Shown here is a 119-nucleotide sequence, a member of the family "RT-12 RNA".
RNA sequence: UAACAUACGCGGCCAAAGCACGGCUUUACGUCGGGCUUGAUAGUGUGAGGAACAUUUUGGUACAUCCGGGAGGGUGAUCAACGGAUCGCCGCCAACCAACACCCUCUCGGUUUGCUAGC
Numbered sequence: 001u002a003a004c005a006u007a008c009g010c011g012g013c014c015a016a017a018g019c020a021c022g023g024c025u026u027u028a029c030g031u032c033g034g035g036c037u038u039g040a041u042a043g044u045g046u047g048a049g050g051a052a053c054a055u056u057u058u059g060g061u062a063c064a065u066c067c068g069g070g071a072g073g074g075u076g077a078u079c080a081a082c083g084g085a086u087c088g089c090c091g092c093c094a095a096c097c098a099a100c101a102c103c104c105u106c107u108c109g110g111u112u113u114g115c116u117a118g119c
Base pairs, nucleotide, nucleotide: 009092010091011090012089013088018036019035021033022032023031043055044054045053046052057118058117059116060115061114062113066110067109068108069107070106071105072104073103074102075101083097084096086094

Record summary
By type it is a small RNA.